[Rfam]
RNA sequence: GCUGGCAUAGUGAUGAUAACUCUUUGCCGUUUACCCAGCUGAAUUUAGUGAUGAGCAAUGCUAUAUCUGAUGUGCCAGC
Numbered sequence: 001g002c003u004g005g006c007a008u009a010g011u012g013a014u015g016a017u018a019a020c021u022c023u024u025u026g027c028c029g030u031u032u033a034c035c036c037a038g039c040u041g042a043a044u045u046u047a048g049u050g051a052u053g054a055g056c057a058a059u060g061c062u063a064u065a066u067c068u069g070a071u072g073u074g075c076c077a078g079c
Stems, first nucleotide, its partner, number of pairs: 001079007

Shown here is a 79-nucleotide sequence from Heliornis fulica, a member of the family "Small nucleolar RNA SNORD87".
The pairing is the family consensus, mapped onto this sequence.
Rfam links the family to the GO terms RNA processing and nucleolus.
The family has 10 seed sequences and 539 matches in Rfam 15.1.
For this family Rfam cites "U87 RNA, a novel C/D box small nucleolar RNA from mammalian cells" (Gogolevskaya et al., Gene, 2002).